[Rfam]
RNA sequence: CCAACGGCUCUUUUCAGAGCCACUUACCUAAUCCAAAAAGAGCUC
Numbered sequence: 001c002c003a004a005c006g007g008c009u010c011u012u013u014u015c016a017g018a019g020c021c022a023c024u025u026a027c028c029u030a031a032u033c034c035a036a037a038a039a040g041a042g043c044u045c
Stems, first nucleotide, its partner, number of pairs: 006021006
RNA: Histone 3' UTR stem-loop